About this RNA: The record is a 75-nucleotide sequence from Syntrophobacter fumaroxidans, which matches "c-di-GMP-I-GGC riboswitch aptamer" in Rfam. It scores 62 bits against the family's covariance model. Lineage of the source: Bacteria > Thermodesulfobacteriota > Syntrophobacteria > Syntrophobacteraceae > Syntrophobacter fumaroxidans. The family's consensus secondary structure is taken from published work.
RNA sequence: UCAGAAAACGCCAACCCUGUUGCGAGACGGGGACGGAAAGCCGCGGGUCUCAUGGAGAUGGCCGGGUUGCCUGAC
Numbered sequence: 001u002c003a004g005a006a007a008a009c010g011c012c013a014a015c016c017c018u019g020u021u022g023c024g025a026g027a028c029g030g031g032g033a034c035g036g037a038a039a040g041c042c043g044c045g046g047g048u049c050u051c052a053u054g055g056a057g058a059u060g061g062c063c064g065g066g067u068u069g070c071c072u073g074a075c
Stems, first nucleotide, its partner, number of pairs: 003072002011036002016031006034061001039068004044064003047059003